[Rfam]
RNA: mir-1237 microRNA precursor family
RNA sequence: GUGUGCGGGCCUGGGCCGGGGUAGGGGUGGGGGUGGCAGAGUGCCGUCCGGGGGGCGGGGCCGGAGCGCGGCCACCCUAACUCCUCCUGCUCCGCCCCCCAG
Numbered sequence: 001g002u003g004u005g006c007g008g009g010c011c012u013g014g015g016c017c018g019g020g021g022u023a024g025g026g027g028u029g030g031g032g033g034u035g036g037c038a039g040a041g042u043g044c045c046g047u048c049c050g051g052g053g054g055g056c057g058g059g060g061c062c063g064g065a066g067c068g069c070g071g072c073c074a075c076c077c078u079a080a081c082u083c084c085u086c087c088u089g090c091u092c093c094g095c096c097c098c099c100c101a102g
Stems, first nucleotide, its partner, number of pairs: 002101002005098001007097004014093002019088003023085006030078001032076003036072002041069004046061004051056001